[Rfam]
RNA sequence: GACCCAUCCAGAGCGGCCGAGAGAUCUGGCUCCACGACGCCGCAGCAACCACCCAACCGGGCCGGUGCUACCGCCAGGAUCGAUGGAAA
Dot-bracket structure: ...(((((....(((((...(((..[[[[)))......)))))((((.((.(((....)))..))))))...(]]]]...))))))...
Description: SAM riboswitch aptamer (S box leader): an 89-nucleotide RNA sequence from Glutamicibacter uratoxydans. Taxonomically the source falls in Glutamicibacter (Bacteria, Actinomycetes, Micrococcales, Micrococcaceae). Its family is annotated with regulation of gene expression in the Gene Ontology. Pairs were carried over by alignment from the consensus structure, which is taken from published work.